About this RNA:
dauA ncRNA motif: an 86-nucleotide sequence from Streptomyces sp. Ag109_O5-10. NCBI's taxonomy places the organism under Bacteria, Actinomycetota, Actinomycetes, Kitasatosporales, Streptomyces. dauA ncRNA motif was reported as a strong cis regulatory motif candidate, with potential to be a cis regulatory riboswitch type, it have been identified in genomes of the genus Streptomyces.
RNA sequence: ACGCCCCUGCCGACAGCGCACCAAGGGGCCGGGAUCCCCGGCGUCACCGCGCGCUGCCGGAUGGUCUUCCGAACCGAGGCGUCAUG
Numbered sequence: 001a002c003g004c005c006c007c008u009g010c011c012g013a014c015a016g017c018g019c020a021c022c023a024a025g026g027g028g029c030c031g032g033g034a035u036c037c038c039c040g041g042c043g044u045c046a047c048c049g050c051g052c053g054c055u056g057c058c059g060g061a062u063g064g065u066c067u068u069c070c071g072a073a074c075c076g077a078g079g080c081g082u083c084a085u086g
Stems, first nucleotide, its partner, number of pairs: 001082005010060003015055005021049001025047001026044001028042005062076003

For this family Rfam cites "The discovery of novel noncoding RNAs in 50 bacterial genomes" (Narunsky et al., Nucleic Acids Res, 2024). The base pairs follow the family's consensus structure, which is taken from published work.